The record is a 269-nucleotide RNA from Nannospalax galili, which matches "Mason-Pfizer monkey virus packaging signal" in Rfam.
This family represents a group of sequences that are related to the Mason-Pfizer monkey virus (MPMV) packaging signal.
It scores 126 bits against the family's covariance model.
A reference for the family is Mustafa et al. (2004), "Mutational analysis of the predicted secondary RNA structure of the Mason-Pfizer monkey virus packaging signal", Virus Res.
The family has 9 seed sequences and 2,921 matches in Rfam 15.1.
The organism belongs to Nannospalax, within Eukaryota.
RNA sequence: UGGUGCCCAAUGUGGCUUGGAUACUGGGGACAACGUGAGGGACACGACGAAAAAAGAAGGGGUGCGCACCCGCUCAAAUAGUUCGGAGACGUCGCGGUAGCCUGCUGUGACCGAGACAACAGGUAAGUUGGUCGUCAAUCAUGGGGCAAGAAUUAGUAAGCAUCAAAAGUAUAUGAUGCAGUUAAGAGAAGCGUUACAGGCAAGAGGAGUAAAGGUUACAACUAAAGAUUUAUUUCAUUUCUUUGAUUUCGUACAGGACAUUUGUCCUU
Numbered sequence: 001u002g003g004u005g006c007c008c009a010a011u012g013u014g015g016c017u018u019g020g021a022u023a024c025u026g027g028g029g030a031c032a033a034c035g036u037g038a039g040g041g042a043c044a045c046g047a048c049g050a051a052a053a054a055a056g057a058a059g060g061g062g063u064g065c066g067c068a069c070c071c072g073c074u075c076a077a078a079u080a081g082u083u084c085g086g087a088g089a090c091g092u093c094g095c096g097g098u099a100g101c102c103u104g105c106u107g108u109g110a111c112c113g114a115g116a117c118a119a120c121a122g123g124u125a126a127g128u129u130g131g132u133c134g135u136c137a138a139u140c141a142u143g144g145g146g147c148a149a150g151a152a153u154u155a156g157u158a159a160g161c162a163u164c165a166a167a168a169g170u171a172u173a174u175g176a177u178g179c180a181g182u183u184a185a186g187a188g189a190a191g192c193g194u195u196a197c198a199g200g201c202a203a204g205a206g207g208a209g210u211a212a213a214g215g216u217u218a219c220a221a222c223u224a225a226a227g228a229u230u231u232a233u234u235u236c237a238u239u240u241c242u243u244u245g246a247u248u249u250c251g252u253a254c255a256g257g258a259c260a261u262u263u264g265u266c267c268u269u
Stems, first nucleotide, its partner, number of pairs: 006029003012024003034046003083123002085120001090113002093109005131147002135144003154196001155194001156192002204244006213231005255268005